The record is a 135-nucleotide RNA sequence from Salinispora arenicola, which matches "c-di-AMP riboswitch aptamer (ydaO/yuaA leader)" in Rfam. It is one of the family's seed sequences.
RNA sequence: CGUGCCGACCCGCUCAAUCGCCGUAAGGCGAACCGGGGACCCGUUCCACCUGGGGUGAAUCCGCGAGCUUCGCGGUAGGGCGUACUUCCCGUCCGAAUCCGUCAGCUAACCCGGUCGGCGGUAUCGGAAGGAGUC
Numbered sequence: 001c002g003u004g005c006c007g008a009c010c011c012g013c014u015c016a017a018u019c020g021c022c023g024u025a026a027g028g029c030g031a032a033c034c035g036g037g038g039a040c041c042c043g044u045u046c047c048a049c050c051u052g053g054g055g056u057g058a059a060u061c062c063g064c065g066a067g068c069u070u071c072g073c074g075g076u077a078g079g080g081c082g083u084a085c086u087u088c089c090c091g092u093c094c095g096a097a098u099c100c101g102u103c104a105g106c107u108a109a110c111c112c113g114g115u116c117g118g119c120g121g122u123a124u125c126g127g128a129a130g131g132a133g134u135c
Base pairs, nucleotide, nucleotide: 011120012119013118014117018031019030020029032115033114034113035112036111037110042052043051053100054099055098061075062074063073064072078094079093080092081091